Rfam assigns this 104-nucleotide RNA from Brevundimonas halotolerans to the family "Manganese Mn2+ riboswitch aptamer (yybP-ykoY)". Lineage of the source: Bacteria > Pseudomonadati > Pseudomonadota > Caulobacterales > Brevundimonas.
RNA sequence: CCCCUCGUCAUCGGGGAGUAGUCGCCCACGCAAAAGUGGGGCGCGCGUCAACACACUUUCCCUCGCCCGGAGGGAAUGGCGCGUGCGGGGCUCCCGCAGACCUU
Numbered sequence: 001c002c003c004c005u006c007g008u009c010a011u012c013g014g015g016g017a018g019u020a021g022u023c024g025c026c027c028a029c030g031c032a033a034a035a036g037u038g039g040g041g042c043g044c045g046c047g048u049c050a051a052c053a054c055a056c057u058u059u060c061c062c063u064c065g066c067c068c069g070g071a072g073g074g075a076a077u078g079g080c081g082c083g084u085g086c087g088g089g090g091c092u093c094c095c096g097c098a099g100a101c102c103u104u
Stems, first nucleotide, its partner, number of pairs: 026039003041086010058076007